[Rfam]
Nucleotides: 075
Stems, first nucleotide, its partner, number of pairs: 011043001014041003019075007026038003047064007
Number, partner (000 for none) and nucleotide at each position: 001000u002000c003000a004000g005000a006000a007000g008000u009000u010000u011043g012000a013000a014041g015040c016039u017000a018000u019075a020074g021073c022072a023071a024070a025069a026038g027037u028036g029000c030000u031000c032000a033000c034000a035000g036028u037027g038026u039016a040015g041014c042000c043011c044000u045000g046000u047064c048063a049062g050061a051060u052059u053058c054000c055000a056000a057000u058053g059052a060051a061050u062049c063048u064047g065000c066000a067000a068000a069025u070024u071023u072022u073021g074020c075019u